[Rfam]
RNA sequence: AAAAUGCACUAAUGUAUGUCGCUCUGGAUAAGAGCGUCUGCAAAAUGACUAAAA
Numbered sequence: 001a002a003a004a005u006g007c008a009c010u011a012a013u014g015u016a017u018g019u020c021g022c023u024c025u026g027g028a029u030a031a032g033a034g035c036g037u038c039u040g041c042a043a044a045a046u047g048a049c050u051a052a053a054a
Stems, first nucleotide, its partner, number of pairs: 013043001014041003020036006
Dot-bracket structure: ............((((...((((((.....))))))..))).)...........

About this RNA: Rfam assigns this 54-nucleotide RNA from Synaphobranchus kaupii to the family "UnaL2 LINE 3' element". The match comes from Rfam's covariance-model search (64 bits). For this family Rfam cites "Solution structure of an RNA stem-loop derived from the 3' conserved region of eel LINE UnaL2" (Baba et al., RNA, 2004). The family's consensus secondary structure is taken from published work. Rfam 15.1 lists 493,311 matches to the family in 99 species.